[Rfam]
RNA sequence: CGGGGAGGACGACCUCUCCGGUGUCUGCAAUUUGGGGACGACCCC
Numbered sequence: 001c002g003g004g005g006a007g008g009a010c011g012a013c014c015u016c017u018c019c020g021g022u023g024u025c026u027g028c029a030a031u032u033u034g035g036g037g038a039c040g041a042c043c044c045c
Stems, first nucleotide, its partner, number of pairs: 001020008034045004

The family of this 45-nucleotide RNA sequence from Tuwongella immobilis is "Guanidine-II riboswitch aptamer (mini-ykkC)". A search with the family's covariance model found it, with a score of 45 bits. Rfam 15.1 lists 1,589 matches to the family in 1,229 species. The literature on the family includes a 2017 paper in Cell Chem Biol by Huang et al., "The Structure of the Guanidine-II Riboswitch".